[Rfam]
Flavo-1 RNA: an 84-nucleotide sequence from Flavobacterium caeni. By type it is a small RNA. It scores 76 bits against the family's covariance model.

RNA sequence: CCCUAGCCCGGAUUGAAAUGGAAAUCCUUUUUGAACGCUUUGCAAAAGCGUUCAAAAAGAUUGGAAUGAAAAGCCGGAAACAGC
Number, nucleotide and partner (000 for none) at each position: 001c000002c000003c000004u000005a000006g000007c000008c000009c076010g075011g074012a000013u072014u071015g000016a000017a000018a067019u066020g000021g000022a000023a062024a061025u060026c059027c000028u000029u057030u056031u055032u054033g053034a052035a051036c050037g049038c048039u047040u046041u000042g000043c000044a000045a000046a040047a039048g038049c037050g036051u035052u034053c033054a032055a031056a030057a029058a000059g026060a025061u024062u023063g000064g000065a000066a019067u018068g000069a000070a000071a014072a013073g000074c011075c010076g009077g000078a000079a000080a000081c000082a000083g000084c000